A member of the RNA family "U11 spliceosomal RNA" from Carlito syrichta, 134 nucleotides long.
Rfam classes the family as a spliceosomal small nuclear RNA.
The literature on the family includes a 1988 paper in Proc Natl Acad Sci U S A by Montzka and Steitz, "Additional low-abundance human small nuclear ribonucleoproteins: U11, U12, etc".
[Rfam]
RNA sequence: AAAAAAGGCUUCUAUUGUGAGUGGCACACAUAGGGCAAUUCAAUUGCUCUUGGUGUGGAAUCGACAUCAAGAGAUUUUAGAAGCAUAAUUGUUUGGUACCUAGGAAGCUGGUGUUCACUGGUCUCGGCACCCUA
Numbered sequence: 001a002a003a004a005a006a007g008g009c010u011u012c013u014a015u016u017g018u019g020a021g022u023g024g025c026a027c028a029c030a031u032a033g034g035g036c037a038a039u040u041c042a043a044u045u046g047c048u049c050u051u052g053g054u055g056u057g058g059a060a061u062c063g064a065c066a067u068c069a070a071g072a073g074a075u076u077u078u079a080g081a082a083g084c085a086u087a088a089u090u091g092u093u094u095g096g097u098a099c100c101u102a103g104g105a106a107g108c109u110g111g112u113g114u115u116c117a118c119u120g121g122u123c124u125c126g127g128c129a130c131c132c133u134a
Stems, first nucleotide, its partner, number of pairs: 008084005013026001015024003027055003032050007056079007103131002107128005113123001115121002